[Rfam]
The family of this 315-nucleotide RNA from Halobaculum gomorrense is "Archaeal signal recognition particle RNA". Clan: SRP clan. The source organism's lineage runs through Archaea, Methanobacteriota, Halobacteria, Haloferacaceae and Halobaculum.
RNA sequence: GAAUGGACUAGGUCGGGCAGUUAGGCCCUGCUCGUCUCCCGCAAUAGAGUCUUCAGCGGGGACCGAACGCCGGAGGCGUCCGGGGCGCCCACCGCGGGCCUCGGAAGCUGACGGAGAAGCCUCGUCCGCCGGGGACGACGGUCCGCCGGGACGCACCCGCAGGGGUGCACUCCCACGGUUCGCCGGUGGCACCGGGCCAGGCGCGGAAGCGAGCAGCCCACCGCCGGACGUCCGUCGCUCGUCGGGUCGCGGGGCGGAGUCAGCGACCGGGAUUCCCCUCGGUGGAACUCCCGGGCAACUCCGGCCCGUCCGCUA
Numbered sequence: 001g002a003a004u005g006g007a008c009u010a011g012g013u014c015g016g017g018c019a020g021u022u023a024g025g026c027c028c029u030g031c032u033c034g035u036c037u038c039c040c041g042c043a044a045u046a047g048a049g050u051c052u053u054c055a056g057c058g059g060g061g062a063c064c065g066a067a068c069g070c071c072g073g074a075g076g077c078g079u080c081c082g083g084g085g086c087g088c089c090c091a092c093c094g095c096g097g098g099c100c101u102c103g104g105a106a107g108c109u110g111a112c113g114g115a116g117a118a119g120c121c122u123c124g125u126c127c128g129c130c131g132g133g134g135a136c137g138a139c140g141g142u143c144c145g146c147c148g149g150g151a152c153g154c155a156c157c158c159g160c161a162g163g164g165g166u167g168c169a170c171u172c173c174c175a176c177g178g179u180u181c182g183c184c185g186g187u188g189g190c191a192c193c194g195g196g197c198c199a200g201g202c203g204c205g206g207a208a209g210c211g212a213g214c215a216g217c218c219c220a221c222c223g224c225c226g227g228a229c230g231u232c233c234g235u236c237g238c239u240c241g242u243c244g245g246g247u248c249g250c251g252g253g254g255c256g257g258a259g260u261c262a263g264c265g266a267c268c269g270g271g272a273u274u275c276c277c278c279u280c281g282g283u284g285g286a287a288c289u290c291c292c293g294g295g296c297a298a299c300u301c302c303g304g305c306c307c308g309u310c311c312g313c314u315a
Base pairs, nucleotide, nucleotide: 002314004312005311006310007309008308011064012063013062014061015033016032017031018030019029020028038060039059040058041057042056069305070304071303072302073301074300075299078296079295080294081293082292083290084289085288089285090284091283092282093281094280096278097277098276100271101270102269103268104267107264108263109262110261111260112259119255120254121253122252123251124250125249126245127244128243130241131240132239133238134236135235136234137233138231139230140229141180143178144177145176148173149172150171153168154167155166156165157164158163183227184226185225186224187223188222189221194219195218196217197216202211203210204209
Gene Ontology terms of the family: signal recognition particle, plasma membrane targeting and SRP-dependent cotranslational protein targeting to membrane, signal sequence recognition.